RNA sequence: GGCGAGACUAGAGUCACAUCUUGACAGCCAGUCAUUGUCCUGGUGUGCUAGAGUCCUCGCAGAGCAAACUUCUCUGCUUAUUCAUUGGCUGCAGUCUCAUGUGGCCCAGCCAAUCACCAGCUCAGAGAUAUUA
Numbered sequence: 001g002g003c004g005a006g007a008c009u010a011g012a013g014u015c016a017c018a019u020c021u022u023g024a025c026a027g028c029c030a031g032u033c034a035u036u037g038u039c040c041u042g043g044u045g046u047g048c049u050a051g052a053g054u055c056c057u058c059g060c061a062g063a064g065c066a067a068a069c070u071u072c073u074c075u076g077c078u079u080a081u082u083c084a085u086u087g088g089c090u091g092c093a094g095u096c097u098c099a100u101g102u103g104g105c106c107c108a109g110c111c112a113a114u115c116a117c118c119a120g121c122u123c124a125g126a127g128a129u130a131u132u133a
Stems, first nucleotide, its partner, number of pairs: 002060005007054003012049002015047006023039004072125002076121003084114005090108002095103001
RNA: Small nucleolar RNA SNORA3/SNORA45 family
Organism: Scleropages formosus